[Rfam]
RNA: Purine riboswitch aptamer
RNA sequence: CAAAAUAAAAUAUAUAGCCCUCGUAUAAUAAUAGGAAUAUGGCCUAUAAGUUUCUACCCAAUUACCGAAAAUAAUUGGACUAUGGGGGAAAGUCAAUUGCCC
Numbered sequence: 001c002a003a004a005a006u007a008a009a010a011u012a013u014a015u016a017g018c019c020c021u022c023g024u025a026u027a028a029u030a031a032u033a034g035g036a037a038u039a040u041g042g043c044c045u046a047u048a049a050g051u052u053u054c055u056a057c058c059c060a061a062u063u064a065c066c067g068a069a070a071a072u073a074a075u076u077g078g079a080c081u082a083u084g085g086g087g088g089a090a091a092g093u094c095a096a097u098u099g100c101c102c
Stems, first nucleotide, its partner, number of pairs: 018088008029049001031047005058078007